[Rfam]
RNA sequence: CCUUAAAGUACUGUAGCAGCACAUCAUGGUUUACAUGCUACAGUCAAGAUGCGAAUCAUUAUUUGCUGCUCUAGAAAUUUAAGG
Numbered sequence: 001c002c003u004u005a006a007a008g009u010a011c012u013g014u015a016g017c018a019g020c021a022c023a024u025c026a027u028g029g030u031u032u033a034c035a036u037g038c039u040a041c042a043g044u045c046a047a048g049a050u051g052c053g054a055a056u057c058a059u060u061a062u063u064u065g066c067u068g069c070u071c072u073a074g075a076a077a078u079u080u081a082a083g084g
Base pairs, nucleotide, nucleotide: 001084002083003082004081005080006079013072015070016069017068018067019066020065021064023062024061026059027058028057029056030055031054032053034051035050036049